[Rfam]
RNA sequence: UUUUAUCUUCAGGGCGGGGUGUGAGUCCCCACCGGCGGUAAAGCCCGCGAGCCGAAAGGCUGAUUCGGUGUAAUUCCGAAGCCGACAGUAUAGUCUGGAUGGAAGAAGGUAUAA
Numbered sequence: 001u002u003u004u005a006u007c008u009u010c011a012g013g014g015c016g017g018g019g020u021g022u023g024a025g026u027c028c029c030c031a032c033c034g035g036c037g038g039u040a041a042a043g044c045c046c047g048c049g050a051g052c053c054g055a056a057a058g059g060c061u062g063a064u065u066c067g068g069u070g071u072a073a074u075u076c077c078g079a080a081g082c083c084g085a086c087a088g089u090a091u092a093g094u095c096u097g098g099a100u101g102g103a104a105g106a107a108g109g110u111a112u113a114a
Base pairs, nucleotide, nucleotide: 004111005110006109007108008107009106010105017029018028019027031094032093033084034083035048036047037046038045043082044081051060052059053058064080065079066078067077068076086097087096088095
Record summary
This 114-nucleotide RNA from Clostridium sp. HMP27 belongs to the Rfam family "FMN riboswitch aptamer (RFN element)". The match comes from Rfam's covariance-model search (121 bits). Gene Ontology term of the family: FMN binding. NCBI's taxonomy places the organism under Bacteria, Bacillati, Eubacteriales, Clostridiaceae, Clostridium.